[Rfam]
RNA sequence: UUCCAUUGCUAAGUCAAGGCUUCUUCCUACGACUCUGUCGUGUUUUCAAUGGAGGUUUUGUCUGUUACAGCUUUGGUAGAUUAACACUAGCCCGCGCCGACCUUCUUUCUGAAGCUAGGCUGACGUGCUUUCGUUUUGAAGGCGCGUCGUUAAGGGCCAAGUCGCGCUUUGUUUUUGAGUUGAGAUUUGCUUCGCCUAUUAUGGGCACUCUUAUAGCAGUUCUCUUAGUAACAUCUCACACAUCC
Numbered sequence: 001u002u003c004c005a006u007u008g009c010u011a012a013g014u015c016a017a018g019g020c021u022u023c024u025u026c027c028u029a030c031g032a033c034u035c036u037g038u039c040g041u042g043u044u045u046u047c048a049a050u051g052g053a054g055g056u057u058u059u060g061u062c063u064g065u066u067a068c069a070g071c072u073u074u075g076g077u078a079g080a081u082u083a084a085c086a087c088u089a090g091c092c093c094g095c096g097c098c099g100a101c102c103u104u105c106u107u108u109c110u111g112a113a114g115c116u117a118g119g120c121u122g123a124c125g126u127g128c129u130u131u132c133g134u135u136u137u138g139a140a141g142g143c144g145c146g147u148c149g150u151u152a153a154g155g156g157c158c159a160a161g162u163c164g165c166g167c168u169u170u171g172u173u174u175u176u177g178a179g180u181u182g183a184g185a186u187u188u189g190c191u192u193c194g195c196c197u198a199u200u201a202u203g204g205g206c207a208c209u210c211u212u213a214u215a216g217c218a219g220u221u222c223u224c225u226u227a228g229u230a231a232c233a234u235c236u237c238a239c240a241c242a243u244c245c
Stems, first nucleotide, its partner, number of pairs: 003076003017063004022055005028042005087161002090157004096120003100116001102114004122148012164239001166237001170233003182224004188218004194206004
The record is a 245-nucleotide RNA sequence from Penicilliopsis zonata, which matches "Small nucleolar RNA snR191" in Rfam.
Clan: SNORA74 clan.
A reference for the family is Badis et al. (2003), "A snoRNA that guides the two most conserved pseudouridine modifications within rRNA confers a growth advantage in yeast", RNA.
Pairs were carried over by alignment from the consensus structure, which was predicted with WAR.